[Rfam]
RNA: permuted transfer-messenger RNA
RNA sequence: GACGCUAUACGAUGUCGUGGAAUAAGCGCAGCGGACCCGGGGGCAGUACCCGGCGCCUCCACCAUUACCGCCGCCGGAAGGGACACCUUCCGCGCGGCGCGCCAUGGGGGCGAACCAGGAUCGACGCGCGUGGUAAAGACGGGGUCGGCGUUCGGCAUGGUACCACCGUUAUCGGGCCAUUCGCUUAGAUGCGAACGACAACGAUGAGAUGGUCGCCGUCGCCGCGUAA
Numbered sequence: 001g002a003c004g005c006u007a008u009a010c011g012a013u014g015u016c017g018u019g020g021a022a023u024a025a026g027c028g029c030a031g032c033g034g035a036c037c038c039g040g041g042g043g044c045a046g047u048a049c050c051c052g053g054c055g056c057c058u059c060c061a062c063c064a065u066u067a068c069c070g071c072c073g074c075c076g077g078a079a080g081g082g083a084c085a086c087c088u089u090c091c092g093c094g095c096g097g098c099g100c101g102c103c104a105u106g107g108g109g110g111c112g113a114a115c116c117a118g119g120a121u122c123g124a125c126g127c128g129c130g131u132g133g134u135a136a137a138g139a140c141g142g143g144g145u146c147g148g149c150g151u152u153c154g155g156c157a158u159g160g161u162a163c164c165a166c167c168g169u170u171a172u173c174g175g176g177c178c179a180u181u182c183g184c185u186u187a188g189a190u191g192c193g194a195a196c197g198a199c200a201a202c203g204a205u206g207a208g209a210u211g212g213u214c215g216c217c218g219u220c221g222c223c224g225c226g227u228a229a
Stems, first nucleotide, its partner, number of pairs: 001152005015142004027130003031127003037053005054112007153168003